Fluoride riboswitch aptamer (crcB RNA motif): a 67-nucleotide RNA from Burkholderia mallei.
It is one of the family's seed sequences.
RNA sequence: GCGGCGACCGGAGAUGGCAUGCCUCCGUACAACCGCCGGCGAGCCGGCUGAUGAUGCCUACGCGUUC
Numbered sequence: 001g002c003g004g005c006g007a008c009c010g011g012a013g014a015u016g017g018c019a020u021g022c023c024u025c026c027g028u029a030c031a032a033c034c035g036c037c038g039g040c041g042a043g044c045c046g047g048c049u050g051a052u053g054a055u056g057c058c059u060a061c062g063c064g065u066u067c
Stems, first nucleotide, its partner, number of pairs: 010026004016058005035048004
The family's consensus secondary structure is taken from published work.